[Rfam]
RNA sequence: GGGGGUGUAGCUCAGUGGUAGAGCGCAUGCUUUGCAUGUAUGAGGUCUUGGGUUCAAUCCCCAGCAUCUCCA
Numbered sequence: 001g002g003g004g005g006u007g008u009a010g011c012u013c014a015g016u017g018g019u020a021g022a023g024c025g026c027a028u029g030c031u032u033u034g035c036a037u038g039u040a041u042g043a044g045g046u047c048u049u050g051g052g053u054u055c056a057a058u059c060c061c062c063a064g065c066a067u068c069u070c071c072a
Stems, first nucleotide, its partner, number of pairs: 001071007010024004026042005048064005
Dot-bracket structure: (((((((..((((.......)))).(((((.......))))).....(((((.......)))))))))))).
Source information
Rfam assigns this 72-nucleotide sequence to the family "tRNA". From the family's description: Transfer RNA (tRNA) molecules are approximately 80 nucleotides in length. The base pairs follow the family's consensus structure, which is taken from published work.